[Rfam]
RNA: Peptidase-S11 RNA
Nucleotides: 092
Base pairs, nucleotide, nucleotide: 015050016049017048019047020046021045022044023043024042051069052068053067054066055065056064
Number, partner (000 for none) and nucleotide at each position: 001000g002000g003000u004000a005000u006000g007000a008000u009000a010000u011000c012000g013000c014000c015050g016049c017048c018000a019047g020046c021045c022044c023043g024042c025000g026000c027000u028000c029000c030000g031000a032000c033000c034000u035000c036000a037000c038000u039000g040000a041000a042024g043023c044022g045021g046020g047019c048017g049016g050015c051069c052068u053067g054066u055065g056064u057000c058000g059000g060000u061000c062000u063000g064056a065055c066054a067053c068052a069051g070000u071000a072000c073000a074000u075000a076000u077000u078000c079000a080000u081000a082000a083000c084000c085000g086000g087000g088000u089000u090000u091000u092000u